[Rfam]
RNA sequence: AUACUAAAAGGGAAUGAAGUUCUCCCUUAGAUUAUUUCUAAAACCGCAUUUUGCUGAUGACUUCUGUUACUAU
Numbered sequence: 001a002u003a004c005u006a007a008a009a010g011g012g013a014a015u016g017a018a019g020u021u022c023u024c025c026c027u028u029a030g031a032u033u034a035u036u037u038c039u040a041a042a043a044c045c046g047c048a049u050u051u052u053g054c055u056g057a058u059g060a061c062u063u064c065u066g067u068u069a070c071u072a073u
Base pairs, nucleotide, nucleotide: 010026011025012024013023016064017063018062019061020060021059046054047053
RNA: Fluoride riboswitch aptamer (crcB RNA motif)